[Rfam]
RNA: Vertebrate telomerase RNA
RNA sequence: UGGGCCCGGGAGUGGUGGCUGCCAUUUCGUGUCUAACCCUAACUGAGACUGGCGUAGGCGCUGCGCUUUUGCUCCCCGCGCGCUGUUUUUCUCGCUGACUUUCAGCGGGCGGAAAAGCCUCGGCCUACCGCUAUCCACAAUCCAGACCGAAGCAAACAAAAAAUGUCAGCCGCUGGCUCGCUCACCUCUCCCGGGAACCUGCGUGGCUCGCCCGCCCAGGCCCCGCGCCCCGCCUGAGGCCGCGGUCGGCCGGGGCUUCUCCGGAGGCGCCCACUGCCGCCGCGAAGAGUUGGGCUCUGUCAGCCGCGGGUCGCUUGGGGGGCCGAGGCGAGGCUCUUACCGCAGGGAAAGGAACGGAGCCGGUCCCCGCGCGCGGUGCGCUUCCCUGAGCUGUGGGACGUGCACCCGGGACUCGGCUCAGACACUU
Numbered sequence: 001u002g003g004g005c006c007c008g009g010g011a012g013u014g015g016u017g018g019c020u021g022c023c024a025u026u027u028c029g030u031g032u033c034u035a036a037c038c039c040u041a042a043c044u045g046a047g048a049c050u051g052g053c054g055u056a057g058g059c060g061c062u063g064c065g066c067u068u069u070u071g072c073u074c075c076c077c078g079c080g081c082g083c084u085g086u087u088u089u090u091c092u093c094g095c096u097g098a099c100u101u102u103c104a105g106c107g108g109g110c111g112g113a114a115a116a117g118c119c120u121c122g123g124c125c126u127a128c129c130g131c132u133a134u135c136c137a138c139a140a141u142c143c144a145g146a147c148c149g150a151a152g153c154a155a156a157c158a159a160a161a162a163a164u165g166u167c168a169g170c171c172g173c174u175g176g177c178u179c180g181c182u183c184a185c186c187u188c189u190c191c192c193g194g195g196a197a198c199c200u201g202c203g204u205g206g207c208u209c210g211c212c213c214g215c216c217c218a219g220g221c222c223c224c225g226c227g228c229c230c231c232g233c234c235u236g237a238g239g240c241c242g243c244g245g246u247c248g249g250c251c252g253g254g255g256c257u258u259c260u261c262c263g264g265a266g267g268c269g270c271c272c273a274c275u276g277c278c279g280c281c282g283c284g285a286a287g288a289g290u291u292g293g294g295c296u297c298u299g300u301c302a303g304c305c306g307c308g309g310g311u312c313g314c315u316u317g318g319g320g321g322g323c324c325g326a327g328g329c330g331a332g333g334c335u336c337u338u339a340c341c342g343c344a345g346g347g348a349a350a351g352g353a354a355c356g357g358a359g360c361c362g363g364u365c366c367c368c369g370c371g372c373g374c375g376g377u378g379c380g381c382u383u384c385c386c387u388g389a390g391c392u393g394u395g396g397g398a399c400g401u402g403c404a405c406c407c408g409g410g411a412c413u414c415g416g417c418u419c420a421g422a423c424a425c426u427u
Stems, first nucleotide, its partner, number of pairs: 005195008014186005021177004065118005077111003081107005094170006100163003198346006210334003213330004221320005227314001229310005241284005247279004252272003286298004357419004362413006376405005383398004